Histone 3' UTR stem-loop: a 46-nucleotide RNA from Acyrthosiphon pisum. Taxonomically the source falls in Acyrthosiphon (Eukaryota, Bilateria, Ecdysozoa, Aphidinae). The mRNAs of metazoan histone genes lack a poly-A tail. 3' end processing occurs at a site between a highly conserved stem-loop (modelled by this family) and a purine rich region around 20 nts downstream (the histone downstream element, or HDE). The stem-loop is bound by a 31 kDa stem-loop binding protein (SLBP - also termed the histone hairpin binding protein, or HBP). A search with the family's covariance model found it, with a score of 35 bits. The base pairs follow the family's consensus structure, which is taken from published work.

[Rfam]
RNA sequence: AAAACGGUCCUUUUCAGGACCACCAAUUUUAUUUAACAUACGACUG
Numbered sequence: 001a002a003a004a005c006g007g008u009c010c011u012u013u014u015c016a017g018g019a020c021c022a023c024c025a026a027u028u029u030u031a032u033u034u035a036a037c038a039u040a041c042g043a044c045u046g
Base pairs, nucleotide, nucleotide: 006021007020008019009018010017011016